The family of this 91-nucleotide RNA from Nyctereutes procyonoides is "mir-8799 microRNA precursor family". Rfam 15.1 lists 20,638 matches to the family in 5 species. Its Rfam clan is "mir-8791 microRNA precursor clan".
[Rfam]
RNA sequence: GGGGGGAGCGCCGGAUCCUGGGCUGUGUCCCCGGUGCCCUGGGAUGGGGGCCUGCACCGCGGGAAUCGUGCUCCCAGCAGCGCAGCCCCCU
Numbered sequence: 001g002g003g004g005g006g007a008g009c010g011c012c013g014g015a016u017c018c019u020g021g022g023c024u025g026u027g028u029c030c031c032c033g034g035u036g037c038c039c040u041g042g043g044a045u046g047g048g049g050g051c052c053u054g055c056a057c058c059g060c061g062g063g064a065a066u067c068g069u070g071c072u073c074c075c076a077g078c079a080g081c082g083c084a085g086c087c088c089c090c091u
Base pairs, nucleotide, nucleotide: 001091002090003089004088005087006086010083011082012080014078017077020074021073022072024070025069026068027067028064029063031062032059033058034057035056036055037054041052043051045049